[Rfam]
Nucleotides: 085
Base pairs, nucleotide, nucleotide: 002084004082005081006080007079
Number, partner (000 for none) and nucleotide at each position: 001000a002084g003000a004082g005081g006080c007079c008000c009000a010000u011000g012000a013000u014000g015000a016000u017000u018000u019000a020000a021000a022000u023000u024000u025000g026000c027000c028000u029000a030000c031000a032000u033000u034000g035000u036000c037000u038000g039000a040000u041000c042000a043000u044000c045000a046000a047000a048000u049000g050000a051000u052000a053000u054000g055000a056000c057000a058000g059000a060000g061000a062000c063000a064000u065000a066000u067000u068000a069000u070000u071000a072000g073000u074000u075000c076000u077000g078000a079007g080006g081005c082004c083000u084002c085000a
This 85-nucleotide RNA from Salix purpurea belongs to the Rfam family "Small nucleolar RNA SNORD34". It scores 50 bits against the family's covariance model. Rfam describes the family as follows. snoRNA U34 is found in intron 5 of the ribosomal protein L13a gene in humans. For this family Rfam cites "Purified box C/D snoRNPs are able to reproduce site-specific 2'-O-methylation of target RNA in vitro" (Galardi et al., Mol Cell Biol, 2002). Taxonomically the source falls in Salix (Eukaryota, Mesangiospermae, fabids, Salicaceae). The family is grouped with related families in Rfam's "SNORD34 clan".